[Rfam]
The record is a 109-nucleotide sequence from Paracoccus shanxieyensis, which matches "TPP riboswitch aptamer (THI element)" in Rfam. Pairs were carried over by alignment from the consensus structure, which is taken from published work.
RNA sequence: GGCCUGACCGAGGGGAGUCCCGCAAGGGGCUGAGAGACCGCAUAGCGCGCGGUGACCCUUUGAACCUGAUCCGGAUCAUGCCGGCGAAGGGACGGGACGCCCAGACCUG
Number, nucleotide and partner (000 for none) at each position: 001g000002g000003c000004c000005u000006g000007a000008c095009c094010g093011a059012g058013g057014g056015g000016a000017g030018u029019c028020c027021c026022g000023c000024a000025a000026g021027g020028g019029g018030c017031u000032g000033a000034g000035a000036g000037a053038c052039c051040g050041c049042a000043u000044a000045g000046c000047g000048c000049g041050c040051g039052g038053u037054g000055a000056c014057c013058c012059u011060u000061u000062g000063a000064a000065c090066c089067u088068g000069a000070u000071c084072c083073g082074g081075a000076u000077c000078a000079u000080g000081c074082c073083g072084g071085c000086g000087a000088a067089g066090g065091g000092a000093c010094g009095g008096g000097a000098c000099g000100c000101c000102c000103a000104g000105a000106c000107c000108u000109g000
It scores 69 bits against the family's covariance model.